[Rfam]
Notes:
Rfam assigns this 101-nucleotide RNA from Propithecus coquereli to the family "Y RNA". NCBI's taxonomy places the organism under Eukaryota, Opisthokonta, Sarcopterygii, Boreoeutheria, Propithecus. Rfam describes the family as follows. Y RNAs are components of the Ro ribonucleoprotein particle (Ro RNP), in association with Ro60 and La proteins. The Y RNAs and Ro60 and La proteins are well conserved, but the function of the Ro RNP is not known. The literature on the family includes a 2013 paper in Physiol Genomics by Dhahbi et al., "5'-YRNA fragments derived by processing of transcripts from specific YRNA genes and pseudogenes are abundant in human serum and plasma".

Nucleotides: 101
Stems, first nucleotide, its partner, number of pairs: 002096007010089002016080001018078003022075001028063003032059002
Number, partner (000 for none) and nucleotide at each position: 001000u002096g003095c004094u005093g006092g007091u008090c009000c010089a011088a012000g013000u014000a015000c016080a017000c018078u019077g020076g021000u022075g023000u024000u025000u026000a027000c028063a029062a030061c031000u032059a033058a034000u035000u036000g037000a038000u039000c040000a041000c042000a043000a044000c045000c046000a047000g048000u049000u050000a051000c052000a053000g054000u055000u056000a057000c058033u059032u060000u061030g062029u063028u064000c065000u066000u067000u068000c069000u070000c071000c072000a073000c074000u075022c076020c077019c078018a079000c080016u081000g082000c083000u084000u085000c086000a087000c088011u089010u090008g091007a092006c093005u094004a095003g096002c097000c098000u099000c100000a101000a